The record is a 259-nucleotide part of an RNA from Halomarina oriensis, which matches "Archaeal large subunit ribosomal RNA" in Rfam. The base pairs follow the family's consensus structure, which is taken from published work. The source organism's lineage runs through Archaea, Methanobacteriota, Halobacteriales, Natronomonadaceae and Halomarina.

RNA sequence: GAGUGUGUCUGUUUGACGAGUCUAACCCGAGUAUCGGGGAAGGCGUAGGGAAACCAAUAUGGCCGCAGCAUUGCCAGGGCCACCGUGUUCAAGCGCGGGGAGUCAAGCGGGCACGACCCGAAUCCGAGUGAUCUACACAUGGGCAAGGUGAAGCAUGGCGAAAGCCAUGUGGAAGCCUGCUAGAGUUGGUGUCCUACAAUACCCUCUCGUGACCUAUGUGUAGGGGUGAAAGGCCCAUCGAACUCGGUAACAGCUGGUU
Dot-bracket structure: ....(((((((((((((..((((..((((.....))))..))))...((....)).....((((...((...))...))))..((((......))))....)))))))))))))..((.(...((((((...((((((((((((.((((...(((((((....)))))))....))))....(((..((.((........)))).)))..).))))))))))).(((.....)))......))))))......).))..